The family of this 89-nucleotide RNA from Synechococcus phage S-CBM2 is "wcaG RNA".

RNA sequence: CGGAGUUUCUCAGUUCUCUAAAAAUUGGGUGGUGGAGUCAAUUGACCCGUAGGUUUCUUGCUUCCUAAAAGCAAGUGGCGAGCAUGAGG
Numbered sequence: 001c002g003g004a005g006u007u008u009c010u011c012a013g014u015u016c017u018c019u020a021a022a023a024a025u026u027g028g029g030u031g032g033u034g035g036a037g038u039c040a041a042u043u044g045a046c047c048c049g050u051a052g053g054u055u056u057c058u059u060g061c062u063u064c065c066u067a068a069a070a071g072c073a074a075g076u077g078g079c080g081a082g083c084a085u086g087a088g089g
Stems, first nucleotide, its partner, number of pairs: 009029007035048001037046003051066003057075006